This 190-nucleotide RNA from Otolemur garnettii belongs to the Rfam family "U2 spliceosomal RNA". It scores 154 bits against the family's covariance model. Pairs were carried over by alignment from the consensus structure, which is taken from published work. Its family is annotated with pre-mRNA branch point binding, mRNA branch site recognition and U2 snRNP in the Gene Ontology.
[Rfam]
RNA sequence: ACUGCUUCUCGGCCUUUUGGCUAAGAUCAAGUGUAGUGUCUGUUUUUAUCAGUUUAAUAUCUGAUACAUCUUCUAUCCAAGGACAAUAUAUUAAAUGGAUUUUUGGAGCAGGGAGUUGGAAUAGGAGCUUGCUCGGUCCACUCCACGCAUCGACCUGGUAUUACGUACUCCCAGGAACAGUGCACCCCCA
Dot-bracket structure: ......(((.((((....)))).)))....................((((((........))))))..((((.......))))............................(((((.((.....(((....)))..)).)))))..((((.(.(((((............)))))..).)))).......